[Rfam]
RNA: Glycine riboswitch aptamer
Organism: Kibdelosporangium phytohabitans
RNA sequence: GCAACUCUGGAAAGAAGGCGCGCCAAGCGCCUCGCCAACGGUGAAAGCCGCGCACGCGGUGAAGCUCUCAGGCAGCAAGGACAGAGUGGGGAGU
Numbered sequence: 001g002c003a004a005c006u007c008u009g010g011a012a013a014g015a016a017g018g019c020g021c022g023c024c025a026a027g028c029g030c031c032u033c034g035c036c037a038a039c040g041g042u043g044a045a046a047g048c049c050g051c052g053c054a055c056g057c058g059g060u061g062a063a064g065c066u067c068u069c070a071g072g073c074a075g076c077a078a079g080g081a082c083a084g085a086g087u088g089g090g091g092a093g094u
Base pairs, nucleotide, nucleotide: 002089004087005086006085007084008083009082016032017031018030019029034073035072036071038068041067043065047060048059